[Rfam]
Nucleotides: 099
Stems, first nucleotide, its partner, number of pairs: 001095008010087002014083001016078005022073001027061003031057002
Number, partner (000 for none) and nucleotide at each position: 001095g002094g003093c004092u005091g006090g007089u008088c009000u010087g011086a012000g013000u014083g015000c016078a017077a018076u019075g020074g021000u022073g023000u024000u025000u026000a027061a028060a029059c030000u031057a032056a033000u034000u035000g036000a037000u038000c039000a040000c041000a042000a043000u044000g045000u046000u047000a048000c049000g050000g051000a052000u053000u054000u055000c056032u057031u058000u059029g060028u061027u062000c063000c064000u065000c066000c067000u068000c069000c070000a071000c072000u073022c074020c075019c076018a077017u078016u079000g080000c081000u082000u083014c084000a085000c086011u087010u088008g089007a090006c091005u092004a093003g094002c095001c096000u097000u098000c099000a
Shown here is a 99-nucleotide sequence from Pongo abelii, a member of the family "Y RNA". The base pairs follow the family's consensus structure, which is taken from published work. It is annotated as a non-coding RNA gene. It scores 74 bits against the family's covariance model. Rfam describes the family as follows. Y RNAs are components of the Ro ribonucleoprotein particle (Ro RNP), in association with Ro60 and La proteins. Taxonomically the source falls in Pongo (Eukaryota, Teleostomi, Amniota, Euarchontoglires).